[Rfam]
RNA sequence: UACACCUUUAAAGAAGUACAGAGAGACUUCAAAGGAAUAGUGCAAGAAGGAGAGGUCCCAACAGACCUCCCUGCUUCCCUAUACCCUGAGAGUCUUCUCUCAGGGUUUUUUGUAU
Numbered sequence: 001u002a003c004a005c006c007u008u009u010a011a012a013g014a015a016g017u018a019c020a021g022a023g024a025g026a027c028u029u030c031a032a033a034g035g036a037a038u039a040g041u042g043c044a045a046g047a048a049g050g051a052g053a054g055g056u057c058c059c060a061a062c063a064g065a066c067c068u069c070c071c072u073g074c075u076u077c078c079c080u081a082u083a084c085c086c087u088g089a090g091a092g093u094c095u096u097c098u099c100u101c102a103g104g105g106u107u108u109u110u111u112g113u114a115u
Stems, first nucleotide, its partner, number of pairs: 005035005013030005045076002049072002052069006081108001083106010
Dot-bracket structure: ....(((((...(((((........)))))))))).........((..((.((((((......)))))).))..))....(.((((((((((....)))))))))).).......

This 115-nucleotide sequence from Alkalihalophilus pseudofirmus belongs to the Rfam family "PyrR binding site". The literature on the family includes a 2001 paper in Nucleic Acids Res by Bonner et al., "Molecular recognition of pyr mRNA by the Bacillus subtilis attenuation regulatory protein PyrR".